[Rfam]
RNA sequence: CGCGUCGCUGUCAGUAACAAGGAUUCAUCCUGUUGUGAUGCUGCAGGCUGACAGGAUAUCGUUGUUAUUGGGGGCGGGUCU
Dot-bracket structure: ..........(((((((((..(((....(((((((.(.(......).))))))))..)))..)))))))))..........